Glycine riboswitch aptamer: an 80-nucleotide RNA from Lutispora thermophila. This family represents the bacterial glycine riboswitch. NCBI's taxonomy places the organism under Bacteria, Bacillati, Bacillota, Clostridia, Lutispora thermophila.
[Rfam]
RNA sequence: CUCUGAAAAGUCCUUUAAAUAGGCACCGUAGGAGAAAGCCAUGGUUGAUGAUGGCGAUACUCUCAGGUAAGCAAACAGAG
Dot-bracket structure: (((((......(((......))).((((...(((...(((((........)))))....))).).))).......)))))